Record summary: The record is a 75-nucleotide RNA from Kitasatospora cheerisanensis, which matches "ASpks TB sRNA" in Rfam. The literature on the family includes a 2009 paper in Mol Microbiol by Arnvig and Young, "Identification of small RNAs in Mycobacterium tuberculosis". The source organism's lineage runs through Bacteria, Actinomycetota, Actinomycetes, Streptomycetaceae and Kitasatospora cheerisanensis. The family's consensus secondary structure is taken from published work. The family's RNA type in Rfam is antisense RNA.
RNA sequence: CUUCAGCGACCCGAGCCACAGCGGGUCCUGCUCGCCGCGGUCCCGGCCGUAGGUGGCCAGCAGCGCCUGGGCCUC
Numbered sequence: 001c002u003u004c005a006g007c008g009a010c011c012c013g014a015g016c017c018a019c020a021g022c023g024g025g026u027c028c029u030g031c032u033c034g035c036c037g038c039g040g041u042c043c044c045g046g047c048c049g050u051a052g053g054u055g056g057c058c059a060g061c062a063g064c065g066c067c068u069g070g071g072c073c074u075c
Stems, first nucleotide, its partner, number of pairs: 014026001016024002031071003038065002043060001045058001047056003